[Rfam]
RNA sequence: UCUAACUGAUAGUUUGAGGAGUGGAAUGAUCGGGUAACGCCGUGAAACGCUUCCCCUGAGACUACGGCAAAAGGGAACGUUUGUAAUAACAAAUCCUUGAUGCAGCCCGUCGAAGUCGGCGGAAGUCUGCCCCAACAAUUGUUGUUGUGGAAAUCGGCUUGGAGGCAAGCUGUGCAGAUGAUACGCCGGGGGUCUAUAAA
Numbered sequence: 001u002c003u004a005a006c007u008g009a010u011a012g013u014u015u016g017a018g019g020a021g022u023g024g025a026a027u028g029a030u031c032g033g034g035u036a037a038c039g040c041c042g043u044g045a046a047a048c049g050c051u052u053c054c055c056c057u058g059a060g061a062c063u064a065c066g067g068c069a070a071a072a073g074g075g076a077a078c079g080u081u082u083g084u085a086a087u088a089a090c091a092a093a094u095c096c097u098u099g100a101u102g103c104a105g106c107c108c109g110u111c112g113a114a115g116u117c118g119g120c121g122g123a124a125g126u127c128u129g130c131c132c133c134a135a136c137a138a139u140u141g142u143u144g145u146u147g148u149g150g151a152a153a154u155c156g157g158c159u160u161g162g163a164g165g166c167a168a169g170c171u172g173u174g175c176a177g178a179u180g181a182u183a184c185g186c187c188g189g190g191g192g193u194c195u196a197u198a199a200a
Base pairs, nucleotide, nucleotide: 018053019052020051021050022049023048033041034040054192055191056190057189064110065109066108067107068102069101072098073097074096075095076094117188118187119186120185121184125179126178127177128176129175130174131150132149137146138145155172156171157170158169159168160167161166
Annotation: The family of this 200-nucleotide RNA sequence from Desulfosporosinus metallidurans is "Group II catalytic intron D1-D4-5". Rfam's curators write: Group II introns are found in rRNA, tRNA and mRNA of organelles in fungi, plants and protists, and also in mRNA in bacteria. Gene Ontology term of the family: Group II intron splicing. Lineage of the source: Bacteria > Clostridia > Eubacteriales > Desulfitobacteriaceae > Desulfosporosinus.